[Rfam]
RNA sequence: CAGCUUCGUUGCGGCCCACCUCCUCCCGGGCCGAAACGGAAAACAGCCAAUCGUCAUCCUCCUCCCGAUGAUUGGCUGACCUUAACGGCACCCACCGAAUCCCUCCUCCCUCGGUGGGUGCCGCAA
Number, nucleotide and partner (000 for none) at each position: 001c000002a000003g000004c000005u000006u000007c038008g037009u036010u000011g000012c033013g032014g031015c030016c029017c000018a000019c000020c000021u000022c000023c000024u000025c000026c000027c000028g000029g016030g015031c014032c013033g012034a000035a000036a009037c008038g007039g000040a000041a000042a000043a000044c000045a077046g076047c075048c074049a073050a072051u071052c070053g069054u068055c000056a000057u000058c000059c000060u000061c000062c000063u000064c000065c000066c000067g000068a054069u053070g052071a051072u050073u049074g048075g047076c046077u045078g000079a000080c000081c000082u000083u000084a000085a000086c000087g000088g121089c120090a119091c118092c117093c116094a115095c114096c113097g112098a111099a000100u000101c000102c000103c000104u000105c000106c000107u000108c000109c000110c000111u098112c097113g096114g095115u094116g093117g092118g091119u090120g089121c088122c000123g000124c000125a000126a000
RNA: Alphaproteobacterial ar14
Organism: Mesorhizobium denitrificans